[Rfam]
About this RNA:
Rfam assigns this 105-nucleotide RNA from Bacillus sp. FJAT-18017 to the family "SAM riboswitch aptamer (S box leader)". The base pairs follow the family's consensus structure, which is taken from published work. Lineage of the source: Bacteria > Bacilli > Caryophanales > Bacillaceae > Bacillus. Rfam's curators write: The SAM riboswitch is found upstream of a number of genes which code for proteins involved in methionine or cysteine biosynthesis in Gram-positive bacteria. The SAM riboswitch acts at the level of transcription termination control. The predicted structure consists of a complex stem-loop region followed by a single stem loop terminator region. An alternative and mutually exclusive form involves bases in the 3' segment of helix 1 with those in the 5' region of helix 5 to form a structure termed the anti-terminator form. This entry represents the conserved core of the complex structure involving helices 1-4. It scores 87 bits against the family's covariance model.
RNA sequence: UCUCUAUCAAGAGAGACGGAGGGAAAGGCCCGAUGAUGUCUCGGCAACAGGUCCAUCAAGGAUACUGUGCUAAGUCCUGCAAACAAAUUGUUUGGAAGAUGGGGA
Numbered sequence: 001u002c003u004c005u006a007u008c009a010a011g012a013g014a015g016a017c018g019g020a021g022g023g024a025a026a027g028g029c030c031c032g033a034u035g036a037u038g039u040c041u042c043g044g045c046a047a048c049a050g051g052u053c054c055a056u057c058a059a060g061g062a063u064a065c066u067g068u069g070c071u072a073a074g075u076c077c078u079g080c081a082a083a084c085a086a087a088u089u090g091u092u093u094g095g096a097a098g099a100u101g102g103g104g105a
Base pairs, nucleotide, nucleotide: 001105002104003103004102005101006100007099008098013042014041015040016039017038021031022030023029026078027077028076043071044070045069046068048067049066051063052062053061054060075097080094081093082092083091084090085089